MIR7504 microRNA precursor family: a 123-nucleotide RNA from Gossypium klotzschianum. A search with the family's covariance model found it, with a score of 84 bits. Its family is annotated with RISC complex and miRNA-mediated post-transcriptional gene silencing in the Gene Ontology. Rfam 15.1 lists 7,343 matches to the family in 61 species. The organism belongs to Gossypium, within Eukaryota.
[Rfam]
RNA sequence: AAUAGGAAAAUAACAAAUCAACUUUUUCCUCUUGAUUUUUAGCAUUUUUAGUUGAAUUUAAAUUUUUUCAGAAGGAAAAGGCUGAAAAUUAGGAGGAAAGAUACGAUUUGUCAUUCUCCUAUU
Numbered sequence: 001a002a003u004a005g006g007a008a009a010a011u012a013a014c015a016a017a018u019c020a021a022c023u024u025u026u027u028c029c030u031c032u033u034g035a036u037u038u039u040u041a042g043c044a045u046u047u048u049u050a051g052u053u054g055a056a057u058u059u060a061a062a063u064u065u066u067u068u069c070a071g072a073a074g075g076a077a078a079a080g081g082c083u084g085a086a087a088a089u090u091a092g093g094a095g096g097a098a099a100g101a102u103a104c105g106a107u108u109u110g111u112c113a114u115u116c117u118c119c120u121a122u123u
Stems, first nucleotide, its partner, number of pairs: 001123007009115003013111007023101005029095011041083002045079004